[Rfam]
RNA sequence: CAAUCUAUGUCUCAACCCACCCAACUCCACUCAAAUAUCUCUUUGGUUCCAGAGAGUCGUAGUGUAUAGCCAGAGAGCCAGUCAGAGGGCGCUAUCAUGCAAACUAGGGCUGGCUACUCUAGCACAGAAUCACAUCCCGAUAAUCAACAGUGCUAGAAGGUUGAUUAUACCAUUUAAUAUGCCGAGGCCACGCGGAGUACGAUCGAGGGUACAGCAUAAUCUCAACUUUUGUUGAGCCACAAUUUUAAUCCUAAUUGGAGAAGGCCAAAGGACUGUACUACUUUUGUAGGUGUAGCAGUCGCCCAGUGGGAAAGCGCCAACUAGGUUACAAUUGUGGUGGGGACAAAUUAGGGGAAAUUAAAUUGGCUUAUAGGGGGGAUGGAGC
Numbered sequence: 001c002a003a004u005c006u007a008u009g010u011c012u013c014a015a016c017c018c019a020c021c022c023a024a025c026u027c028c029a030c031u032c033a034a035a036u037a038u039c040u041c042u043u044u045g046g047u048u049c050c051a052g053a054g055a056g057u058c059g060u061a062g063u064g065u066a067u068a069g070c071c072a073g074a075g076a077g078c079c080a081g082u083c084a085g086a087g088g089g090c091g092c093u094a095u096c097a098u099g100c101a102a103a104c105u106a107g108g109g110c111u112g113g114c115u116a117c118u119c120u121a122g123c124a125c126a127g128a129a130u131c132a133c134a135u136c137c138c139g140a141u142a143a144u145c146a147a148c149a150g151u152g153c154u155a156g157a158a159g160g161u162u163g164a165u166u167a168u169a170c171c172a173u174u175u176a177a178u179a180u181g182c183c184g185a186g187g188c189c190a191c192g193c194g195g196a197g198u199a200c201g202a203u204c205g206a207g208g209g210u211a212c213a214g215c216a217u218a219a220u221c222u223c224a225a226c227u228u229u230u231g232u233u234g235a236g237c238c239a240c241a242a243u244u245u246u247a248a249u250c251c252u253a254a255u256u257g258g259a260g261a262a263g264g265c266c267a268a269a270g271g272a273c274u275g276u277a278c279u280a281c282u283u284u285u286g287u288a289g290g291u292g293u294a295g296c297a298g299u300c301g302c303c304c305a306g307u308g309g310g311a312a313a314g315c316g317c318c319a320a321c322u323a324g325g326u327u328a329c330a331a332u333u334g335u336g337g338u339g340g341g342g343a344c345a346a347a348u349u350a351g352g353g354g355a356a357a358u359u360a361a362a363u364u365g366g367c368u369u370a371u372a373g374g375g376g377g378g379a380u381g382g383a384g385c
Base pairs, nucleotide, nucleotide: 036059039056040055041054042053043052044051045050072120073119074118075117076115077114078113079112080111081110082109083108086105087104091100092099133381134380135379136378137377138376140168141167142166143165144164145163146162147161148160170366171365172364173362174361175360176359177358178357179217180216181215182214187210188209189208191205192204193201194200228347229346230345231344232343233342237337238336239335240334241333242332243331244330246328250325251324252323253322255320256319257318258317271300272299273298274297275296276295278289279288280287281286302310303309304308
A member of the RNA family "Deltacoronavirus 3'UTR" from Deltacoronavirus suis, 385 nucleotides long. It is annotated as a cis-regulatory element. From the family's description: There are two smaller hairpins and the hypervariable region (HVR) present in the 3' UTR of deltacoronaviruses. The pseudoknot structure which is typical for alpha- and betacoronaviruses has not been predicted in deltacoronaviruses thus far. The pairing is the family consensus, mapped onto this sequence. Its Rfam clan is "Coronavirus 3' UTR".